[Rfam]
RNA sequence: CGGGGUUUGAGGCAGGCACCCCGUCAGACGGCAAUUCGUCCAAGUUCUGC
Numbered sequence: 001c002g003g004g005g006u007u008u009g010a011g012g013c014a015g016g017c018a019c020c021c022c023g024u025c026a027g028a029c030g031g032c033a034a035u036u037c038g039u040c041c042a043a044g045u046u047c048u049g050c
Stems, first nucleotide, its partner, number of pairs: 001023006012050005027040005
RNA: chrB-b RNA